RNA sequence: AGCGCAAAUGAUGAACAACAAAGGGACUUAAUGCUGAAACCUGAUGUUACGUUGUGAUGCUGAUAUGUGC
Numbered sequence: 001a002g003c004g005c006a007a008a009u010g011a012u013g014a015a016c017a018a019c020a021a022a023g024g025g026a027c028u029u030a031a032u033g034c035u036g037a038a039a040c041c042u043g044a045u046g047u048u049a050c051g052u053u054g055u056g057a058u059g060c061u062g063a064u065a066u067g068u069g070c
Stems, first nucleotide, its partner, number of pairs: 002070005
Dot-bracket structure: .(((((...........................................................)))))

Overview:
The family of this 70-nucleotide RNA sequence from Loxodonta africana is "Small nucleolar RNA SNORD82". The match comes from Rfam's covariance-model search (74 bits). Rfam's curators write: snoRNA U82 or Z25 is found in both humans and mice. Rfam 15.1 lists 649 matches to the family in 590 species. Its family is annotated with nucleolus and RNA processing in the Gene Ontology. By type it is a C/D-box small nucleolar RNA. The organism belongs to Loxodonta, within Eukaryota.